[Rfam]
RNA: Bacterial RNase P class A
RNA sequence: GGGGCAGAUCGGGCGAUCGCGGUGCCGUCAGGCAUCGAGGAAGGUCCGGACUCCAUCGGGCGCGAUAGCGGCUAACGGCCGUCCGGCGAUCCUUUCGGGGAAAGCCGAGGAACAGGGCCACAGAGACGAGUCUGCCGCGGGGGUGCGCCGCGAGGUGCACACCGGUACGGCCAUCUCCGUACCGUCCGUCCGGCCCGUCCGGGCGGUCCGCGGCAGGGUGAAACGCGGCAACCUCUAUCGGGAGCAACAUCAAAUAGGCAUGCGCCGGCUUCGUGCCGACAGGGCGGCCCGUCCGAGCAUGCGGGUAGAUGGCUAGAGCGGUCCAGCAAUGGCCCGCCCAGAGGAAUGAUCGCCCGCCGGGGCAACCCGGCGUACAGAAUCCGGCCUACAGAUCUGUUCCGCUU
Numbered sequence: 001g002g003g004g005c006a007g008a009u010c011g012g013g014c015g016a017u018c019g020c021g022g023u024g025c026c027g028u029c030a031g032g033c034a035u036c037g038a039g040g041a042a043g044g045u046c047c048g049g050a051c052u053c054c055a056u057c058g059g060g061c062g063c064g065a066u067a068g069c070g071g072c073u074a075a076c077g078g079c080c081g082u083c084c085g086g087c088g089a090u091c092c093u094u095u096c097g098g099g100g101a102a103a104g105c106c107g108a109g110g111a112a113c114a115g116g117g118c119c120a121c122a123g124a125g126a127c128g129a130g131u132c133u134g135c136c137g138c139g140g141g142g143g144u145g146c147g148c149c150g151c152g153a154g155g156u157g158c159a160c161a162c163c164g165g166u167a168c169g170g171c172c173a174u175c176u177c178c179g180u181a182c183c184g185u186c187c188g189u190c191c192g193g194c195c196c197g198u199c200c201g202g203g204c205g206g207u208c209c210g211c212g213g214c215a216g217g218g219u220g221a222a223a224c225g226c227g228g229c230a231a232c233c234u235c236u237a238u239c240g241g242g243a244g245c246a247a248c249a250u251c252a253a254a255u256a257g258g259c260a261u262g263c264g265c266c267g268g269c270u271u272c273g274u275g276c277c278g279a280c281a282g283g284g285c286g287g288c289c290c291g292u293c294c295g296a297g298c299a300u301g302c303g304g305g306u307a308g309a310u311g312g313c314u315a316g317a318g319c320g321g322u323c324c325a326g327c328a329a330u331g332g333c334c335c336g337c338c339c340a341g342a343g344g345a346a347u348g349a350u351c352g353c354c355c356g357c358c359g360g361g362g363c364a365a366c367c368c369g370g371c372g373u374a375c376a377g378a379a380u381c382c383g384g385c386c387u388a389c390a391g392a393u394c395u396g397u398u399c400c401g402c403u404u
Stems, first nucleotide, its partner, number of pairs: 001400010011389001012354007020037007042387003046384005051244004058290004063240005068082005083109001084107004110235002115233002117229003132217002134214008248311004258302006282294004318337004323332003